Rfam assigns this 73-nucleotide sequence from Lactobacillus selangorensis to the family "tRNA". Taxonomically the source falls in Lactobacillus (Bacteria, Bacillati, Bacilli, Lactobacillaceae). The family's consensus secondary structure is taken from published work. It is annotated as a transfer RNA. The match comes from Rfam's covariance-model search (69 bits).
[Rfam]
RNA sequence: GGGUUGUUAGCUCAGCUGGCAGAGCAACGGACUCUUAAUCCGUGGGUCCGGGGUUCGAUCCCCCGACAACCCA
Numbered sequence: 001g002g003g004u005u006g007u008u009a010g011c012u013c014a015g016c017u018g019g020c021a022g023a024g025c026a027a028c029g030g031a032c033u034c035u036u037a038a039u040c041c042g043u044g045g046g047u048c049c050g051g052g053g054u055u056c057g058a059u060c061c062c063c064c065g066a067c068a069a070c071c072c073a
Stems, first nucleotide, its partner, number of pairs: 001072007010025004027043005049065005